About this RNA: A member of the RNA family "Lysine riboswitch aptamer" from Thermoflavimicrobium dichotomicum, 192 nucleotides long. NCBI's taxonomy places the organism under Bacteria, Bacillati, Bacillota, Thermoactinomycetaceae, Thermoflavimicrobium. The match comes from Rfam's covariance-model search (125 bits).
RNA sequence: CGAUGAAGUAGAGGAGCGGCUUUUAUCAGUAUUCAAGUAGGAGAUACAGAGAGAUCGAUGACUAUUUGAAGAAAGGAAAAGUCGCCGAAGUUUGUCUUGCUUUCUCUGGGCGGGACAAGCUGGUGCUGUUUCCGAAUAGGGGCAGGACUGUCACGAUUACUGGGCAAGUAAUCGUGGAGGGCUAUUUCACGA
Numbered sequence: 001c002g003a004u005g006a007a008g009u010a011g012a013g014g015a016g017c018g019g020c021u022u023u024u025a026u027c028a029g030u031a032u033u034c035a036a037g038u039a040g041g042a043g044a045u046a047c048a049g050a051g052a053g054a055u056c057g058a059u060g061a062c063u064a065u066u067u068g069a070a071g072a073a074a075g076g077a078a079a080a081g082u083c084g085c086c087g088a089a090g091u092u093u094g095u096c097u098u099g100c101u102u103u104c105u106c107u108g109g110g111c112g113g114g115a116c117a118a119g120c121u122g123g124u125g126c127u128g129u130u131u132c133c134g135a136a137u138a139g140g141g142g143c144a145g146g147a148c149u150g151u152c153a154c155g156a157u158u159a160c161u162g163g164g165c166a167a168g169u170a171a172u173c174g175u176g177g178a179g180g181g182c183u184a185u186u187u188c189a190c191g192a
Stems, first nucleotide, its partner, number of pairs: 006187006016085009033069008089121012122149003126145007151177009